[Rfam]
RNA sequence: UGCUUAUUUUGCCCAGGCGGAGCUCGACCGCCCACUGAAGCGAUGGUUACCUUCAUCGAUGAACAUCGUUCCGUACUUGGGCCAAUGUCGGAUAUUGGGCCGAUCUGCAGGCUUCUGCCGAUUGCCCCA
Numbered sequence: 001u002g003c004u005u006a007u008u009u010u011g012c013c014c015a016g017g018c019g020g021a022g023c024u025c026g027a028c029c030g031c032c033c034a035c036u037g038a039a040g041c042g043a044u045g046g047u048u049a050c051c052u053u054c055a056u057c058g059a060u061g062a063a064c065a066u067c068g069u070u071c072c073g074u075a076c077u078u079g080g081g082c083c084a085a086u087g088u089c090g091g092a093u094a095u096u097g098g099g100c101c102g103a104u105c106u107g108c109a110g111g112c113u114u115c116u117g118c119c120g121a122u123u124g125c126c127c128c129a
Base pairs, nucleotide, nucleotide: 016032017031018030019029020028078129079128080127081126087125101124102123104121105120107118108117109116110115
Dot-bracket structure: ...............(((((.......))))).............................................((((.....(.............((.((.((((....)))).)).)))))))
Notes: Rfam assigns this 129-nucleotide RNA sequence from Martelella endophytica to the family "ALIL pseudoknot". The base pairs follow the family's consensus structure, which is taken from published work. Its family is annotated with positive regulation of translational frameshifting in the Gene Ontology.